This 114-nucleotide RNA from Actinobacillus succinogenes belongs to the Rfam family "Alpha operon ribosome binding site". It is one of the family's seed sequences. About the family: The bacterial alpha operon ribosome binding site is surrounded by this complex pseudoknotted structure. The source organism's lineage runs through Bacteria, Pseudomonadota, Pasteurellales, Pasteurellaceae and Actinobacillus succinogenes. By type it is a cis-regulatory element. Rfam links the family to the GO term ribosome binding. A reference for the family is Schlax et al. (2001), "Translational repression of the Escherichia coli alpha operon mRNA: importance of an mRNA conformational switch and a ternary entrapment complex", J Biol Chem. Pairs were carried over by alignment from the consensus structure, which is taken from published work.

RNA sequence: UCCUUGGCAUACUGUUUGAGUAUCCUGAAACGGGCUUUUCAAGAUCAGUAUGUCAAAUUAGUUAAAAUAUAGGAGUGCAUAGUGGCCCGUAUUGCAGGCAUUAACAUUCCUGAU
Numbered sequence: 001u002c003c004u005u006g007g008c009a010u011a012c013u014g015u016u017u018g019a020g021u022a023u024c025c026u027g028a029a030a031c032g033g034g035c036u037u038u039u040c041a042a043g044a045u046c047a048g049u050a051u052g053u054c055a056a057a058u059u060a061g062u063u064a065a066a067a068u069a070u071a072g073g074a075g076u077g078c079a080u081a082g083u084g085g086c087c088c089g090u091a092u093u094g095c096a097g098g099c100a101u102u103a104a105c106a107u108u109c110c111u112g113a114u
Stems, first nucleotide, its partner, number of pairs: 004056010024098003031089004039113003